The family of this 96-nucleotide sequence from Eragrostis curvula is "Small nucleolar RNA Z119". The match comes from Rfam's covariance-model search (103 bits). For this family Rfam cites "The high diversity of snoRNAs in plants: identification and comparative study of 120 snoRNA genes from Oryza sativa" (Chen et al., Nucleic Acids Res, 2003). Rfam 15.1 lists 93 matches to the family in 28 species. NCBI's taxonomy places the organism under Eukaryota, Liliopsida, Poales, Chloridoideae, Eragrostis. Gene Ontology terms of the family: nucleolus and RNA processing. The base pairs follow the family's consensus structure, which was predicted with PFOLD. It is annotated as a C/D-box small nucleolar RNA.
RNA sequence: UUUUUGAGAUGAUGAUAUCUAUCAGAGGCUGUUUCUGAGGACGAGCUUGAGCUCUCCCAGUGCUGCAAAAAACUGAUUUGCCGUUCUGAUCGAAGC
Number, nucleotide and partner (000 for none) at each position: 001u000002u000003u094004u093005u092006g091007a090008g000009a000010u000011g000012a000013u000014g000015a000016u000017a000018u000019c000020u000021a000022u000023c000024a000025g000026a000027g000028g000029c000030u000031g000032u000033u000034u000035c000036u000037g000038a000039g000040g000041a000042c000043g054044a053045g052046c051047u000048u000049g000050a000051g046052c045053u044054c043055u000056c000057c000058c000059a000060g000061u000062g000063c000064u000065g081066c080067a079068a078069a077070a000071a000072a000073c000074u000075g000076a000077u069078u068079u067080g066081c065082c000083g000084u000085u000086c000087u000088g000089a000090u007091c006092g005093a004094a003095g000096c000